[Rfam]
Background:
ATPC RNA motif: a 95-nucleotide RNA sequence from Synechococcus sp. RS9916. The literature on the family includes a 2007 paper in Nucleic Acids Res by Weinberg et al., "Identification of 22 candidate structured RNAs in bacteria using the CMfinder comparative genomics pipeline". Lineage of the source: Bacteria > Bacillati > Cyanophyceae > Synechococcaceae > Synechococcus. By type it is a non-coding RNA gene.

RNA sequence: ACCUCCUCAGAUCGCCCGUCUGCUAAAACCUUCUGCGCGCAGGUCCGGUCAUCAGGAUUCGGGCCCACUUUCUCUAGAGACAGUGUCCCUGCGCA
Numbered sequence: 001a002c003c004u005c006c007u008c009a010g011a012u013c014g015c016c017c018g019u020c021u022g023c024u025a026a027a028a029c030c031u032u033c034u035g036c037g038c039g040c041a042g043g044u045c046c047g048g049u050c051a052u053c054a055g056g057a058u059u060c061g062g063g064c065c066c067a068c069u070u071u072c073u074c075u076a077g078a079g080a081c082a083g084u085g086u087c088c089c090u091g092c093g094c095a
Stems, first nucleotide, its partner, number of pairs: 002018001006014001037094004042065007066085004071080002